This 209-nucleotide RNA sequence from Nitrincola sp. A-D6 belongs to the Rfam family "Group II catalytic intron D1-D4-3".
RNA sequence: AAAGUCGAGAGGCUUUGUCUGGAGGAAGCCGCUAGCAAAAUUGCGAGCUGAAGAAGACAGCGUGUCCCGCAAGCACAUCAUAUAAGACGUAGGCUGGAGGCGAGUUGGCAGAGCCGGUCGCGUUAAACGCUUUGGGUCCAAGACAACGAAGCCACGUGAUCUGACGGCCACCGUAAAUUGCCUGAUCAAAUGGCAUCAGAAGUCGCAGC
Dot-bracket structure: ((((((....))))))..............((..((.....(((.(.(.(......................(((....((.....(((..(((((..(((..((((....................................))))...)))...........)))))..)))..)))))).).)......)))......))....))
Numbered sequence: 001a002a003a004g005u006c007g008a009g010a011g012g013c014u015u016u017g018u019c020u021g022g023a024g025g026a027a028g029c030c031g032c033u034a035g036c037a038a039a040a041u042u043g044c045g046a047g048c049u050g051a052a053g054a055a056g057a058c059a060g061c062g063u064g065u066c067c068c069g070c071a072a073g074c075a076c077a078u079c080a081u082a083u084a085a086g087a088c089g090u091a092g093g094c095u096g097g098a099g100g101c102g103a104g105u106u107g108g109c110a111g112a113g114c115c116g117g118u119c120g121c122g123u124u125a126a127a128c129g130c131u132u133u134g135g136g137u138c139c140a141a142g143a144c145a146a147c148g149a150a151g152c153c154a155c156g157u158g159a160u161c162u163g164a165c166g167g168c169c170a171c172c173g174u175a176a177a178u179u180g181c182c183u184g185a186u187c188a189a190a191u192g193g194c195a196u197c198a199g200a201a202g203u204c205g206c207a208g209c
Stems, first nucleotide, its partner, number of pairs: 001016006031209002035203002042195003046186001048184001050182001073181003080178002087174003092169005099153003104147004
The base pairs follow the family's consensus structure. About the family: Group II introns are found in rRNA, tRNA and mRNA of organelles in fungi, plants and protists, and also in mRNA in bacteria. It scores 42 bits against the family's covariance model. Taxonomically the source falls in Nitrincola (Bacteria, Pseudomonadota, Oceanospirillales, Oceanospirillaceae).